Shown here is a 106-nucleotide RNA sequence from Nannospalax galili, a member of the family "mir-3473 microRNA precursor family". The source organism's lineage runs through Eukaryota, Metazoa, Chordata, Muroidea and Nannospalax. Rfam 15.1 lists 1,094 matches to the family in 20 species. The family's consensus secondary structure was predicted with RNAalifold.
[Rfam]
RNA sequence: ACUGCUGAGCCAUCUCUCCAGCCCCAGAUAAUUUUUAAGUGAUUCUUUUUUUUUUUUAUUAAAGACUUAUUUAUUUUUGUGGGGGCUGGAGAGAUGGCUCAGCAGU
Numbered sequence: 001a002c003u004g005c006u007g008a009g010c011c012a013u014c015u016c017u018c019c020a021g022c023c024c025c026a027g028a029u030a031a032u033u034u035u036u037a038a039g040u041g042a043u044u045c046u047u048u049u050u051u052u053u054u055u056u057u058a059u060u061a062a063a064g065a066c067u068u069a070u071u072u073a074u075u076u077u078u079g080u081g082g083g084g085g086c087u088g089g090a091g092a093g094a095u096g097g098c099u100c101a102g103c104a105g106u
Base pairs, nucleotide, nucleotide: 002105003104004103005102006101007100008099009098010097011096012095013094014093015092016091017090018089019088020087021086022085023084024083